[Rfam]
RNA sequence: CUGGCGGAUUCUCUCAGCUGUGAGAGGAACGCAGAUCAGGCCACGUGCAUGUUUCGCCAUGAAGUUGAUAGCCUCUGGUGUGACCUUCUCAGCGGCAAUCACCA
Numbered sequence: 001c002u003g004g005c006g007g008a009u010u011c012u013c014u015c016a017g018c019u020g021u022g023a024g025a026g027g028a029a030c031g032c033a034g035a036u037c038a039g040g041c042c043a044c045g046u047g048c049a050u051g052u053u054u055c056g057c058c059a060u061g062a063a064g065u066u067g068a069u070a071g072c073c074u075c076u077g078g079u080g081u082g083a084c085c086u087u088c089u090c091a092g093c094g095g096c097a098a099u100c101a102c103c104a
Stems, first nucleotide, its partner, number of pairs: 003058006009028007035050002040046002066104002069101001071096002075092003078088001080086001
The record is a 104-nucleotide RNA, which matches "Vibrio RNA AS9" in Rfam. The match comes from Rfam's covariance-model search (59 bits). Rfam's curators write: Identified by direct cloning an parallel sequencing experiments with 5S/tRNA depletion. A reference for the family is Liu et al. (2009), "Experimental discovery of sRNAs in Vibrio cholerae by direct cloning, 5S/tRNA depletion and parallel sequencing", Nucleic Acids Res. The family's RNA type in Rfam is antisense RNA.